[Rfam]
RNA sequence: AAGCUAGCUAUUGACUCUGCUUACCUGAAAGUGUUUGUAGAAAUGAAGAAAAAGCUGGUAAUAGUGAAGCCAUGUUACGAGCCUGAAAGAUAAUUGUGAUUAUUAAGGUCCUUGAGAAUGGCUACAGCU
Numbered sequence: 001a002a003g004c005u006a007g008c009u010a011u012u013g014a015c016u017c018u019g020c021u022u023a024c025c026u027g028a029a030a031g032u033g034u035u036u037g038u039a040g041a042a043a044u045g046a047a048g049a050a051a052a053a054g055c056u057g058g059u060a061a062u063a064g065u066g067a068a069g070c071c072a073u074g075u076u077a078c079g080a081g082c083c084u085g086a087a088a089g090a091u092a093a094u095u096g097u098g099a100u101u102a103u104u105a106a107g108g109u110c111c112u113u114g115a116g117a118a119u120g121g122c123u124a125c126a127g128c129u
Base pairs, nucleotide, nucleotide: 003059004058005057006056007055016041017040018039019038020037069122070121071120072119081109082108083107084106086104087103089101090100091099